About this RNA: The record is a 61-nucleotide RNA from Caryopteris mongholica, which matches "Plastid-psbA-2 3UTR RNA" in Rfam. The sequence is in the family's curated seed alignment.

RNA sequence: AAUAUAAGGAGCAAUAAACCCUCUUGAUAAAACAAGAAAGAGUUUAUUGCUCCUUUAUUUU
Numbered sequence: 001a002a003u004a005u006a007a008g009g010a011g012c013a014a015u016a017a018a019c020c021c022u023c024u025u026g027a028u029a030a031a032a033c034a035a036g037a038a039a040g041a042g043u044u045u046a047u048u049g050c051u052c053c054u055u056u057a058u059u060u061u
Stems, first nucleotide, its partner, number of pairs: 006055014021040001022037005